RNA sequence: AAGUGUUGUCAUGUCGCGCGCGGCUGUGGUACCUCUGUAAGCAUUAGUUCUGAAUGAGCACAGUGAACAAACCCAUUAUGAAAGCCUUUGCCCAAGUGAUUAGCCUAGUCGUGAUUAGCGUGGUGGUGAUUAUUAUCCCACCGUGCGGGGCUGCACUUGGACGAAGAAAGGCUUAGCAAACAAGCCGGAAUCGCAAGAGAACCCCCGCACCGUCAGGUCCGGGGGUUUUUUAUUGGCAAGAGAAAAGUGGAGCAAGGGGCAGAGCAUGAAAAACAGAACAAAAUCCUGCGGUUGUCGAAGUAA
Numbered sequence: 001a002a003g004u005g006u007u008g009u010c011a012u013g014u015c016g017c018g019c020g021c022g023g024c025u026g027u028g029g030u031a032c033c034u035c036u037g038u039a040a041g042c043a044u045u046a047g048u049u050c051u052g053a054a055u056g057a058g059c060a061c062a063g064u065g066a067a068c069a070a071a072c073c074c075a076u077u078a079u080g081a082a083a084g085c086c087u088u089u090g091c092c093c094a095a096g097u098g099a100u101u102a103g104c105c106u107a108g109u110c111g112u113g114a115u116u117a118g119c120g121u122g123g124u125g126g127u128g129a130u131u132a133u134u135a136u137c138c139c140a141c142c143g144u145g146c147g148g149g150g151c152u153g154c155a156c157u158u159g160g161a162c163g164a165a166g167a168a169a170g171g172c173u174u175a176g177c178a179a180a181c182a183a184g185c186c187g188g189a190a191u192c193g194c195a196a197g198a199g200a201a202c203c204c205c206c207g208c209a210c211c212g213u214c215a216g217g218u219c220c221g222g223g224g225g226u227u228u229u230u231u232a233u234u235g236g237c238a239a240g241a242g243a244a245a246a247g248u249g250g251a252g253c254a255a256g257g258g259g260c261a262g263a264g265c266a267u268g269a270a271a272a273a274c275a276g277a278a279c280a281a282a283a284u285c286c287u288g289c290g291g292u293u294g295u296c297g298a299a300g301u302a303a
Stems, first nucleotide, its partner, number of pairs: 005033001007031006013024001015022002037076002041072001044067002047064002050058001086257003090253002094248001100242002105236004110120003122142005128137003143162002146159004163192002170186005196231012209218003259289004264284001267278001

This 303-nucleotide RNA sequence belongs to the Rfam family "Soft rot Enterobacteriaceae Rev 39 5'UTR". From bacteria cultured under starvation conditions. The literature on the family includes a 2016 paper in BMC Genomics by Kwenda et al., "Discovery and profiling of small RNAs responsive to stress conditions in the plant pathogen Pectobacterium atrosepticum". Rfam classes the family as a cis-regulatory element.